The record is a 107-nucleotide RNA from Porphyromonas levii, which matches "Bacteroidales small SRP" in Rfam. A search with the family's covariance model found it, with a score of 106 bits. Gene Ontology terms of the family: signal recognition particle, plasma membrane targeting and SRP-dependent cotranslational protein targeting to membrane, signal sequence recognition. Rfam classes the family as a non-coding RNA gene. The base pairs follow the family's consensus structure, which is taken from published work.
[Rfam]
RNA sequence: CGCAAACGGGUAAGUCCUGCACGGCCAGCUCCUGGUGAACUCCCCCAGGGUUUGAUCGCAGCAAGGGUAGCUGGUUGAGCGGCGCGAUGUAGAUUGCUUACCCACCC
Numbered sequence: 001c002g003c004a005a006a007c008g009g010g011u012a013a014g015u016c017c018u019g020c021a022c023g024g025c026c027a028g029c030u031c032c033u034g035g036u037g038a039a040c041u042c043c044c045c046c047a048g049g050g051u052u053u054g055a056u057c058g059c060a061g062c063a064a065g066g067g068u069a070g071c072u073g074g075u076u077g078a079g080c081g082g083c084g085c086g087a088u089g090u091a092g093a094u095u096g097c098u099u100a101c102c103c104a105c106c107c
Stems, first nucleotide, its partner, number of pairs: 008103008017092005022086002024083002